[Rfam]
RNA sequence: GGCCGAGGGAGGCUUAUCGGCGGGGCCACAAGCUGAGUGCGCCAUGUCACUCUAUGCCUUGUCCCUUGGGAAGGUCUGAGACUGGGGUCAAAAGCGGCCCUGACAGGGCUUUCCCAGUUCUGGGGAGGUGAGUACCCUGAAACAGGGCCCCGUGUGAGGAUAGACUGGGCAGGAAGUGCUGUGGAUCCCGUACCUGUGGUGGGACCUGGUGGAUGUCUCCUUAGGAGGAACUUGAAAGAGACUCAUGGCCAGCCAUCCAGAGAGUUCAAUGGCUGAGGUGAGGAGCCCUGCAUGGGGCCUCAGAACCCAACUCAGACUGCUCUUCCAAGACC
Numbered sequence: 001g002g003c004c005g006a007g008g009g010a011g012g013c014u015u016a017u018c019g020g021c022g023g024g025g026c027c028a029c030a031a032g033c034u035g036a037g038u039g040c041g042c043c044a045u046g047u048c049a050c051u052c053u054a055u056g057c058c059u060u061g062u063c064c065c066u067u068g069g070g071a072a073g074g075u076c077u078g079a080g081a082c083u084g085g086g087g088u089c090a091a092a093a094g095c096g097g098c099c100c101u102g103a104c105a106g107g108g109c110u111u112u113c114c115c116a117g118u119u120c121u122g123g124g125g126a127g128g129u130g131a132g133u134a135c136c137c138u139g140a141a142a143c144a145g146g147g148c149c150c151c152g153u154g155u156g157a158g159g160a161u162a163g164a165c166u167g168g169g170c171a172g173g174a175a176g177u178g179c180u181g182u183g184g185a186u187c188c189c190g191u192a193c194c195u196g197u198g199g200u201g202g203g204a205c206c207u208g209g210u211g212g213a214u215g216u217c218u219c220c221u222u223a224g225g226a227g228g229a230a231c232u233u234g235a236a237a238g239a240g241a242c243u244c245a246u247g248g249c250c251a252g253c254c255a256u257c258c259a260g261a262g263a264g265u266u267c268a269a270u271g272g273c274u275g276a277g278g279u280g281a282g283g284a285g286c287c288c289u290g291c292a293u294g295g296g297g298c299c300u301c302a303g304a305a306c307c308c309a310a311c312u313c314a315g316a317c318u319g320c321u322c323u324u325c326c327a328a329g330a331c332c
Stems, first nucleotide, its partner, number of pairs: 001332002004329001008325003013277004018272001022066004035052005040046001076315005086250004096110005111126006128246006147231001279302005
Dot-bracket structure: ((.(...(((..[[[[.[...((((.........((((((.....).)))))..........)))).........(((((.....((((......(((((.....)))))((((((....)))))).((((((.............(...................................................................................).........)))))))))).....................].]]]].(((((..............)))))........))))).......)))...).))

Shown here is a 332-nucleotide sequence from Dasypus novemcinctus, a member of the family "Nuclear RNase P".
Rfam's curators put it in the seed alignment.
The family is grouped with related families in Rfam's "RNaseP clan".
Taxonomically the source falls in Dasypus (Eukaryota, Metazoa, Euteleostomi, Xenarthra).